A member of the RNA family "L31-Actinobacteria ribosomal protein leader" from Gordonia shandongensis, 52 nucleotides long.

[Rfam]
RNA sequence: CCGGUUCCGGUUCACACCCCGAGUCAGAGUUCUCGGCGGUGACCCGGCGACC
Numbered sequence: 001c002c003g004g005u006u007c008c009g010g011u012u013c014a015c016a017c018c019c020c021g022a023g024u025c026a027g028a029g030u031u032c033u034c035g036g037c038g039g040u041g042a043c044c045c046g047g048c049g050a051c052c
Base pairs, nucleotide, nucleotide: 003052004051005050007047008046009045010044015041016040017039018038019036020035021034022033
The family's consensus secondary structure is taken from published work. Rfam classes the family as a cis-regulatory leader. The family is grouped with related families in Rfam's "Ribosomal Protein L31 Leader clan".